[Rfam]
Shown here is a 187-nucleotide sequence from Myotis brandtii, a member of the family "Small Cajal body specific RNA 16". The family's consensus secondary structure was predicted with RNAfold. The literature on the family includes a 2002 paper in EMBO J by Darzacq et al., "Cajal body-specific small nuclear RNAs: a novel class of 2'-O-methylation and pseudouridylation guide RNAs". The match comes from Rfam's covariance-model search (188 bits). From the family's description: scaRNAs are a specific class of small nuclear RNAs which localise to the Cajal bodies and guide the modification of RNA polymerase II transcribed spliceosomal RNAs U1, U2, U4, U5 and U12. ACA47 belongs to the H/ACA box class of guide RNAs as it has the predicted hairpin-hinge-hairpin-tail structure, the conserved H/ACA-box motifs and is found associated with GAR1. ACA47 is predicted to guide the pseudouridylation of residue U5 of the U1 spliceosomal snRNA. Rfam links the family to the GO terms RNA processing and nucleolus.
RNA sequence: AUGGUCCAGGGAAAGCUUCCUGUGUUGUUGAACCUGCCCAGUUGUGAGUGCAGCCUCGAACCAAGCAGCCCUACCCUGACCUAAAGUAAAUUCCCAGGAGAAGUUUUUCUUGGGUCUUGAAUUUGCAGCAACAGGUGUGAACAUUCUAGCAGCAGUUUGAUGAUCAUGUAUGAUACUGCAAACAAGA
Numbered sequence: 001a002u003g004g005u006c007c008a009g010g011g012a013a014a015g016c017u018u019c020c021u022g023u024g025u026u027g028u029u030g031a032a033c034c035u036g037c038c039c040a041g042u043u044g045u046g047a048g049u050g051c052a053g054c055c056u057c058g059a060a061c062c063a064a065g066c067a068g069c070c071c072u073a074c075c076c077u078g079a080c081c082u083a084a085a086g087u088a089a090a091u092u093c094c095c096a097g098g099a100g101a102a103g104u105u106u107u108u109c110u111u112g113g114g115u116c117u118u119g120a121a122u123u124u125g126c127a128g129c130a131a132c133a134g135g136u137g138u139g140a141a142c143a144u145u146c147u148a149g150c151a152g153c154a155g156u157u158u159g160a161u162g163a164u165c166a167u168g169u170a171u172g173a174u175a176c177u178g179c180a181a182a183c184a185a186g187a
Stems, first nucleotide, its partner, number of pairs: 003081004009075002015070001017068002019065001021063002024061002027054004032049002093114003096110005122182007130174001132172002138166003142162004148157003